Rfam assigns this 588-nucleotide part of an RNA from Candidatus Fukatsuia symbiotica to the family "Bacterial small subunit ribosomal RNA".
The literature on the family includes a 2001 paper in Science by Yusupov et al., "Crystal structure of the ribosome at 5.5 A resolution".
Taxonomically the source falls in Candidatus Fukatsuia (Bacteria, Pseudomonadota, Gammaproteobacteria, Yersiniaceae).
It scores 1535 bits against the family's covariance model.
[Rfam]
RNA sequence: UGACGGGGGCCCGCACAAGCGGUGGAGCAUGUGGUUUAAUUCGAUGCAACGCGAAGAACCUUACCUACUCUUGACAUCCAGAGGAGUCGACAGAGAUGUUGACGUGCCCUUCGGGGAGCUUUGAGACAGGUGCUGCAUGGCUGUCGUCAGCUCGUGUUGUGAAAUGUUGGGUUAAGUCCCGCAACGAGCGCAACCCUUAUCUUUUGUUGCCAGCACGUAGAGGUGGGAACUCAAGAGAGACUGCCGGUGAUAAACCGGAGGAAGGUGGGGAUGACGUCAAGUCAUCAUGGCCCUUACGAGUAGGGCUACACACGUGCUACAAUGGCGUAUACAAAGAGAAGCGAGCCUGCGAGGGUGAGCGGACCUCAUAAAGUACGUCGUAGUCCGGAUUGGAGUCUGCAACUCGACUCCAUGAAGUCGGAAUCGCUAGUAAUCGUGGAUCAGAAUGCUACGGUGAAUACGUUCCCGGGCCUUGUACACACCGCCCGUCACACCAUGGGAGUGUUUUGCAAAAGAAGUAGGUAGCUUAACCUUUGGGAUGGCGCUUACCACUUUGUGAACCAUGACUGGGGUGAAGUCGUAACAAGG
Number, nucleotide and partner (000 for none) at each position: 001u479002g478003a476004c475005g474006g000007g473008g472009g471010c470011c469012c468013g467014c000015a463016c462017a000018a000019g427020c426021g425022g424023u423024g320025g000026a318027g317028c316029a315030u314031g313032u312033g311034g309035u308036u000037u000038a000039a000040u055041u054042c053043g052044a000045u000046g000047c000048a000049a000050c000051g000052c043053g042054a041055a040056g000057a000058a000059c000060c000061u000062u000063a000064c304065c303066u302067a301068c300069u299070c298071u000072u000073g000074a000075c000076a000077u126078c125079c123080a122081g121082a120083g119084g000085a000086g103087u102088c101089g100090a099091c098092a097093g000094a000095g000096a000097u092098g091099u090100u089101g088102a087103c086104g000105u118106g000107c116108c115109c000110u000111u000112c000113g000114g000115g108116g107117a000118g105119c083120u082121u081122u080123g079124a000125g078126a077127c000128a000129g293130g292131u000132g291133c290134u289135g288136c000137a000138u287139g286140g282141c281142u280143g278144u000145c276146g275147u000148c000149a000150g189151c188152u187153c186154g185155u184156g165157u164158u163159g000160u000161g000162a000163a158164a157165u156166g000167u000168u181169g180170g179171g178172u000173u000174a000175a000176g000177u000178c171179c170180c169181g168182c000183a000184a155185c154186g153187a152188g151189c150190g000191c000192a000193a000194c000195c270196c269197u268198u267199a000200u238201c237202u236203u235204u234205u233206g232207u000208u000209g000210c227211c226212a000213g000214c225215a224216c223217g000218u000219a000220g000221a000222g000223g216224u215225g214226g211227g210228a000229a000230c000231u000232c206233a205234a204235g203236a202237g201238a200239g000240a000241c261242u260243g000244c258245c257246g256247g255248u254249g000250a000251u000252a000253a000254a248255c247256c246257g245258g244259a000260g242261g241262a000263a000264g000265g000266u000267g198268g197269g196270g195271a000272u000273g000274a000275c146276g145277u000278c143279a000280a142281g141282u140283c000284a000285u000286c139287a138288u135289g134290g133291c132292c130293c129294u000295u000296a000297c000298g070299a069300g068301u067302a066303g065304g064305g000306c000307u000308a035309c034310a000311c033312a032313c031314g030315u029316g028317c027318u026319a000320c024321a000322a000323u000324g379325g378326c377327g376328u375329a374330u373331a000332c000333a000334a000335a000336g367337a366338g365339a000340a000341g360342c359343g000344a000345g000346c355347c354348u353349g000350c000351g000352a000353g348354g347355g346356u000357g000358a000359g342360c341361g000362g000363a000364c000365c338366u337367c336368a000369u000370a000371a000372a000373g330374u329375a328376c327377g326378u325379c324380g000381u000382a000383g000384u000385c000386c417387g000388g000389a000390u000391u412392g411393g410394a409395g408396u407397c406398u000399g000400c000401a000402a000403c000404u000405c000406g397407a396408c395409u394410c393411c392412a391413u000414g000415a000416a000417g386418u000419c000420g000421g000422a000423a023424u022425c021426g020427c019428u000429a000430g000431u000432a000433a455434u454435c453436g452437u451438g450439g449440a000441u000442c000443a000444g000445a000446a000447u000448g000449c439450u438451a437452c436453g435454g434455u433456g000457a000458a000459u000460a000461c000462g016463u015464u000465c000466c000467c013468g012469g011470g010471c009472c008473u007474u005475g004476u003477a000478c002479a001480c000481a000482c587483c000484g584485c000486c000487c580488g579489u000490c000491a000492c574493a573494c572495c571496a000497u569498g568499g567500g000501a000502g564503u563504g562505u000506u560507u559508u558509g557510c556511a555512a554513a553514a000515g000516a000517a000518g549519u548520a547521g546522g545523u544524a000525g543526c542527u541528u000529a000530a000531c538532c537533u000534u000535u000536g000537g532538g531539a000540u000541g527542g526543c525544g523545c522546u521547u520548a519549c518550c000551a000552c000553u513554u512555u511556g510557u509558g508559a507560a506561c000562c504563a503564u502565g000566a000567c499568u498569g497570g000571g495572g494573u493574g492575a000576a000577g000578u000579c488580g487581u000582a000583a000584c484585a000586a000587g482588g000